Shown here is a 114-nucleotide sequence from Gymnodraco acuticeps, a member of the family "Potassium channel RNA editing signal". Gene Ontology term of the family: adenosine to inosine editing. A search with the family's covariance model found it, with a score of 76 bits.
RNA sequence: GUUGGCUAUGGAGAUAUUUACCCAAAAACCCUGCUGGGAAAGAUAGUUGGGGGUUUGUGCUGUAUCGCUGGAGUACUGGUGAUAGCCCUGCCUAUCCCCAUUAUCGUGAAUAAC
Numbered sequence: 001g002u003u004g005g006c007u008a009u010g011g012a013g014a015u016a017u018u019u020a021c022c023c024a025a026a027a028a029c030c031c032u033g034c035u036g037g038g039a040a041a042g043a044u045a046g047u048u049g050g051g052g053g054u055u056u057g058u059g060c061u062g063u064a065u066c067g068c069u070g071g072a073g074u075a076c077u078g079g080u081g082a083u084a085g086c087c088c089u090g091c092c093u094a095u096c097c098c099c100a101u102u103a104u105c106g107u108g109a110a111u112a113a114c
Stems, first nucleotide, its partner, number of pairs: 001114002004111001007108005013102003020095001037077002040074001049063001051061001